RNA sequence: ACUGCACCCCCAAGCCCCAAAGAUCAUUGUUUCCUUCUUCACAAUGAUCUUAUCUGGGGUGCUGACAUCAAUUGUACCUCGUCGCCUUUCAAGAGCUGUUCGAAGUGCUCCUGAAAGUGAAAUGGAAGGUUCAACAUAU
Numbered sequence: 001a002c003u004g005c006a007c008c009c010c011c012a013a014g015c016c017c018c019a020a021a022g023a024u025c026a027u028u029g030u031u032u033c034c035u036u037c038u039u040c041a042c043a044a045u046g047a048u049c050u051u052a053u054c055u056g057g058g059g060u061g062c063u064g065a066c067a068u069c070a071a072u073u074g075u076a077c078c079u080c081g082u083c084g085c086c087u088u089u090c091a092a093g094a095g096c097u098g099u100u101c102g103a104a105g106u107g108c109u110c111c112u113g114a115a116a117g118u119g120a121a122a123u124g125g126a127a128g129g130u131u132c133a134a135c136a137u138a139u
Base pairs, nucleotide, nucleotide: 002064004062005061006060007059008058009057022049023048024047025046026045027044028043029042030041074132076130077129078128079127086117087116088115089114090113091112093110094109095108096107